[Rfam]
RNA sequence: AAGUAGAUACACCCUGAUGACUCCCCCAGUGCUUUCACGAGCUCUGGGGUUUUUUCUU
Numbered sequence: 001a002a003g004u005a006g007a008u009a010c011a012c013c014c015u016g017a018u019g020a021c022u023c024c025c026c027c028a029g030u031g032c033u034u035u036c037a038c039g040a041g042c043u044c045u046g047g048g049g050u051u052u053u054u055u056c057u058u
Stems, first nucleotide, its partner, number of pairs: 003012002024049006031042003
Rfam assigns this 58-nucleotide sequence from Allocoleopsis franciscana to the family "Nitrogen stress-induced RNA 1".
The organism belongs to Allocoleopsis franciscana, within Bacteria.
By type it is a small RNA.
A reference for the family is Ionescu et al. (2010), "Heterocyst-specific transcription of NsiR1, a non-coding RNA encoded in a tandem array of direct repeats in cyanobacteria", J Mol Biol.